Bacterial RNase P class A: a 333-nucleotide RNA from Kosmotoga sp. Taxonomically the source falls in Kosmotoga (Bacteria, Thermotogati, Thermotogota, Kosmotogales). By type it is a ribozyme. Pairs were carried over by alignment from the consensus structure, which is taken from published work.

RNA sequence: UGAGUUUAGCGUAUGGUCGCGGUUUCACCGAGGAAAGUCCGGACUCCGAGGGCUGGAUGCCGGGUAACACCCGGAAAGAGUGAUCUUUGGUAAGGGCCAUAGAAAAGGAAACCGCUGGCUGCAUUGCCAGCAAGGGUGGAAAGGUGAGGUAAGAGCUCACCAGAUCUGAAGUGAUUCAGGUGCUUGGCAACCCCCAUCCGGAGCAAUUCCAAGCAGAGGGGUUUGAGGCUGCCCGCCAAAUCCUCUCGGGUAGGAAGCUUGAGGUAUAUGGUAACAUAUGCCCCAGAUGGAUGACCAUAUAAACAGAAUCCGGCUUAUCGCUAGACUCGUUGU
Numbered sequence: 001u002g003a004g005u006u007u008a009g010c011g012u013a014u015g016g017u018c019g020c021g022g023u024u025u026c027a028c029c030g031a032g033g034a035a036a037g038u039c040c041g042g043a044c045u046c047c048g049a050g051g052g053c054u055g056g057a058u059g060c061c062g063g064g065u066a067a068c069a070c071c072c073g074g075a076a077a078g079a080g081u082g083a084u085c086u087u088u089g090g091u092a093a094g095g096g097c098c099a100u101a102g103a104a105a106a107g108g109a110a111a112c113c114g115c116u117g118g119c120u121g122c123a124u125u126g127c128c129a130g131c132a133a134g135g136g137u138g139g140a141a142a143g144g145u146g147a148g149g150u151a152a153g154a155g156c157u158c159a160c161c162a163g164a165u166c167u168g169a170a171g172u173g174a175u176u177c178a179g180g181u182g183c184u185u186g187g188c189a190a191c192c193c194c195c196a197u198c199c200g201g202a203g204c205a206a207u208u209c210c211a212a213g214c215a216g217a218g219g220g221g222u223u224u225g226a227g228g229c230u231g232c233c234c235g236c237c238a239a240a241u242c243c244u245c246u247c248g249g250g251u252a253g254g255a256a257g258c259u260u261g262a263g264g265u266a267u268a269u270g271g272u273a274a275c276a277u278a279u280g281c282c283c284c285a286g287a288u289g290g291a292u293g294a295c296c297a298u299a300u301a302a303a304c305a306g307a308a309u310c311c312g313g314c315u316u317a318u319c320g321c322u323a324g325a326c327u328c329g330u331u332g333u
Stems, first nucleotide, its partner, number of pairs: 001329010011318001012299007020030004035316003039313005044203004050234004055199005060074005075088005089194002094192002096188003112135002114131006143161006163183001164181007207256004216247006227237003263282008